[Rfam]
Rfam assigns this 102-nucleotide sequence from Kalanchoe fedtschenkoi to the family "Small nucleolar RNA snoR100". The organism belongs to Kalanchoe, within Eukaryota. Rfam classes the family as an H/ACA-box small nucleolar RNA. Gene Ontology terms of the family: nucleolus and RNA processing. The literature on the family includes a 2002 paper in Curr Biol by Marker et al., "Experimental RNomics: identification of 140 candidates for small non-messenger RNAs in the plant Arabidopsis thaliana". Rfam 15.1 lists 1,851 matches to the family in 220 species. The match comes from Rfam's covariance-model search (72 bits).
RNA sequence: GAAUGAAGAAGGCAUGGUAGUGUACACGGACAUCAAAAGGGUCGUCAUGUCUGCUCCCACUGAUUUAUACAUGAUUUGGGAGCCUGGAUUAAACCCACAUUU
Dot-bracket structure: ...........(.((......)).).............((((......(((...(...........).....)))......)))).................